Rfam assigns this 252-nucleotide RNA from Medicago truncatula to the family "MIR2655 microRNA precursor family".
RNA sequence: AACAUAUAGACUUAAAUGCUCUUUUGAUCCAUUAACUUUAUUUUAAGUAUCGGCUUGGUCCCUUAAGUAAUAAAAAGUCUGUUUAGGUCCCUUAAUUCAAAAAAAAUGUUAAGUUUAGAGACCAAACUAAUACUAAUUAAAUAAGUUAAGGGACCAAAAUUUAACUUUCUUUGAAUUAAAUUAACAGAAAGAACGAAACUGAUACUUUAAAUAAAGUUAAGGGACUUAAACAGACUUUUUACUAUUAUGGGA
Numbered sequence: 001a002a003c004a005u006a007u008a009g010a011c012u013u014a015a016a017u018g019c020u021c022u023u024u025u026g027a028u029c030c031a032u033u034a035a036c037u038u039u040a041u042u043u044u045a046a047g048u049a050u051c052g053g054c055u056u057g058g059u060c061c062c063u064u065a066a067g068u069a070a071u072a073a074a075a076a077g078u079c080u081g082u083u084u085a086g087g088u089c090c091c092u093u094a095a096u097u098c099a100a101a102a103a104a105a106a107u108g109u110u111a112a113g114u115u116u117a118g119a120g121a122c123c124a125a126a127c128u129a130a131u132a133c134u135a136a137u138u139a140a141a142u143a144a145g146u147u148a149a150g151g152g153a154c155c156a157a158a159a160u161u162u163a164a165c166u167u168u169c170u171u172u173g174a175a176u177u178a179a180a181u182u183a184a185c186a187g188a189a190a191g192a193a194c195g196a197a198a199c200u201g202a203u204a205c206u207u208u209a210a211a212u213a214a215a216g217u218u219a220a221g222g223g224a225c226u227u228a229a230a231c232a233g234a235c236u237u238u239u240u241a242c243u244a245u246u247a248u249g250g251g252a
Stems, first nucleotide, its partner, number of pairs: 003249004008245001022230003026226001028224001030222001032220011045207002
Gene Ontology terms of the family: miRNA-mediated post-transcriptional gene silencing and RISC complex. NCBI's taxonomy places the organism under Eukaryota, Streptophytina, Pentapetalae, Papilionoideae, Medicago.